This 134-nucleotide RNA from Rousettus aegyptiacus belongs to the Rfam family "Small nucleolar RNA SNORA64/SNORA10 family". By type it is an H/ACA-box small nucleolar RNA. On this family, see Narayanan et al., EMBO J 1999: "Nucleolar localization signals of box H/ACA small nucleolar RNAs". Pairs were carried over by alignment from the consensus structure, which is taken from published work.

RNA sequence: ACUCUCCCAGCUCUGCAUAGUUACACUUGUUUUCAUACGUGUAACUUUCGUAAUGGGGAGAGAGAGAAAGGAUCUCCUCAAGAUCUCAGAUUGGUCUCAUGGUGGCCUCUCCUUCCUUGAGGGGCACAACAAGC
Numbered sequence: 001a002c003u004c005u006c007c008c009a010g011c012u013c014u015g016c017a018u019a020g021u022u023a024c025a026c027u028u029g030u031u032u033u034c035a036u037a038c039g040u041g042u043a044a045c046u047u048u049c050g051u052a053a054u055g056g057g058g059a060g061a062g063a064g065a066g067a068a069a070g071g072a073u074c075u076c077c078u079c080a081a082g083a084u085c086u087c088a089g090a091u092u093g094g095u096c097u098c099a100u101g102g103u104g105g106c107c108u109c110u111c112c113u114u115c116c117u118u119g120a121g122g123g124g125c126a127c128a129a130c131a132a133g134c
Base pairs, nucleotide, nucleotide: 002066003065004064005063006062008060011058012057013056014055015054019046020045021044022043023042024041025040026039074124075123076122077121078120080118081117082116089111090110093107094106095105096104